[Rfam]
Shown here is a 72-nucleotide RNA from Canis lupus, a member of the family "mir-631 microRNA precursor family". Its family is annotated with RISC complex and miRNA-mediated post-transcriptional gene silencing in the Gene Ontology. Taxonomically the source falls in Canis lupus (Eukaryota, Gnathostomata, Mammalia, Eutheria). The literature on the family includes a 2010 paper in BMC Res Notes by Brameier, "Genome-wide comparative analysis of microRNAs in three non-human primates". Rfam 15.1 lists 98 matches to the family in 94 species. The family's consensus secondary structure was predicted with RNAalifold.
Nucleotides: 072
Base pairs, nucleotide, nucleotide: 001072002071003070004069005068006067009064010062011061012060013059016058017057018056019055020054021053023051024050025049027047028046029044030043031042032041033040
Number, partner (000 for none) and nucleotide at each position: 001072g002071g003070g004069g005068a006067g007000c008000c009064u010062g011061g012060c013059c014000g015000a016058c017057c018056u019055g020054g021053c022000c023051c024050a025049g026000a027047c028046c029044u030043c031042a032041g033040c034000c035000c036000c037000a038000u039000a040033g041032c042031u043030g044029a045000u046028g047027g048000g049025c050024u051023g052000a053021g054020u055019c056018a057017g058016g059013g060012g061011c062010c063000a064009a065000g066000g067006c068005u069004c070003c071002c072001c